[Rfam]
RNA sequence: AUCAGAAAAGAGCAAACCUUUUUGAAAAAUAGAGGCGCAAAGCCACAGGUCUAAGGCGGAGGCUAAGACGGCUGGGCUGCCUGA
Numbered sequence: 001a002u003c004a005g006a007a008a009a010g011a012g013c014a015a016a017c018c019u020u021u022u023u024g025a026a027a028a029a030u031a032g033a034g035g036c037g038c039a040a041a042g043c044c045a046c047a048g049g050u051c052u053a054a055g056g057c058g059g060a061g062g063c064u065a066a067g068a069c070g071g072c073u074g075g076g077c078u079g080c081c082u083g084a
Stems, first nucleotide, its partner, number of pairs: 012038002018032002021029001023028001041078004046074003049069003056063002
RNA: c-di-GMP-I riboswitch aptamer